[Rfam]
RNA sequence: ACAAAGACAAAGAAAAGAAGAGUAGGCAGGAAAACUUUUACAGAGAGUUCUUCAUCGGUGAAAGAAGGAUAAAGAGAAUUACUGUUGAAAAUGGUCUUGGAGUCGUAUGGCUGAAAAUGCAGUAGGUCAUAUCGGGAGCGCCCGUUACAGCGAUAGAGUAUAACUUGGAAACAGGCGUACUUGAAGAGUUCUGCACGAGUGAUCGGCAGAUAAACUAAGGUGGUAACACGAAGCAAAGCUUUCGUCCUUAUG
Numbered sequence: 001a002c003a004a005a006g007a008c009a010a011a012g013a014a015a016a017g018a019a020g021a022g023u024a025g026g027c028a029g030g031a032a033a034a035c036u037u038u039u040a041c042a043g044a045g046a047g048u049u050c051u052u053c054a055u056c057g058g059u060g061a062a063a064g065a066a067g068g069a070u071a072a073a074g075a076g077a078a079u080u081a082c083u084g085u086u087g088a089a090a091a092u093g094g095u096c097u098u099g100g101a102g103u104c105g106u107a108u109g110g111c112u113g114a115a116a117a118u119g120c121a122g123u124a125g126g127u128c129a130u131a132u133c134g135g136g137a138g139c140g141c142c143c144g145u146u147a148c149a150g151c152g153a154u155a156g157a158g159u160a161u162a163a164c165u166u167g168g169a170a171a172c173a174g175g176c177g178u179a180c181u182u183g184a185a186g187a188g189u190u191c192u193g194c195a196c197g198a199g200u201g202a203u204c205g206g207c208a209g210a211u212a213a214a215c216u217a218a219g220g221u222g223g224u225a226a227c228a229c230g231a232a233g234c235a236a237a238g239c240u241u242u243c244g245u246c247c248u249u250a251u252g
Stems, first nucleotide, its partner, number of pairs: 007103002015098004025086005036073003047070006106131007133144003190210005217249004228245005
Rfam assigns this 252-nucleotide RNA from Copranaerobaculum intestinale to the family "T-box leader". The literature on the family includes a 1994 paper in J Bacteriol by Grundy et al., "Interaction between the acceptor end of tRNA and the T box stimulates antitermination in the Bacillus subtilis tyrS gene: a new role for the discriminator base". The family's consensus secondary structure is taken from published work. The source organism's lineage runs through Bacteria, Erysipelotrichia, Erysipelotrichales, Erysipelotrichaceae and Copranaerobaculum. Rfam classes the family as a cis-regulatory leader.